[Rfam]
RNA sequence: GGGGAGAAUCUGUCAAGCUCAGGAGGGAUAGCGCCAUGAGCAGUGAUGAUGGUUUUCUUUUUGUGCUGAGUUAAUUAUCUCUGCAAAUUUUCAACCAUCAGUGGCGCUAUCUAUCCUGAGUUUUAUGGAUUCUUCUU
Numbered sequence: 001g002g003g004g005a006g007a008a009u010c011u012g013u014c015a016a017g018c019u020c021a022g023g024a025g026g027g028a029u030a031g032c033g034c035c036a037u038g039a040g041c042a043g044u045g046a047u048g049a050u051g052g053u054u055u056u057c058u059u060u061u062u063g064u065g066c067u068g069a070g071u072u073a074a075u076u077a078u079c080u081c082u083g084c085a086a087a088u089u090u091u092c093a094a095c096c097a098u099c100a101g102u103g104g105c106g107c108u109a110u111c112u113a114u115c116c117u118g119a120g121u122u123u124u125a126u127g128g129a130u131u132c133u134u135c136u137u
Stems, first nucleotide, its partner, number of pairs: 010128001016122009026112012